[Rfam]
RNA sequence: UUGCCGCCCAGGGGAAGGGACAUGCCCACUCCGGGGGUGGGGGGGGUGGCAGUGUGGGGACUGCAGCCACUCGCCAGCCCAGACCUGCCCU
Numbered sequence: 001u002u003g004c005c006g007c008c009c010a011g012g013g014g015a016a017g018g019g020a021c022a023u024g025c026c027c028a029c030u031c032c033g034g035g036g037g038u039g040g041g042g043g044g045g046g047u048g049g050c051a052g053u054g055u056g057g058g059g060a061c062u063g064c065a066g067c068c069a070c071u072c073g074c075c076a077g078c079c080c081a082g083a084c085c086u087g088c089c090c091u
Base pairs, nucleotide, nucleotide: 003050004049005048006047007046011032012031013030014029
Dot-bracket structure: ..(((((...((((..............)))).............))))).........................................